[Rfam]
RNA: Small nucleolar RNA SNORA71
RNA sequence: GCCUGUAUCGAAAGUGACCAUGGCAUGACUGUUGCCAUUGCCAUUGAUAGUACAGGAACAGUGAUCUGAAAGCUUUUCCCGUGUUUGUUGGAAUAACUUCCUGUCAAACCCUGUGUCUUUCAAACA
Dot-bracket structure: .(((((((....((((.(.(.((((.......)))).).).))))....)))))))........(.((((((..........((((((.(((......))).).))))).......)))))))...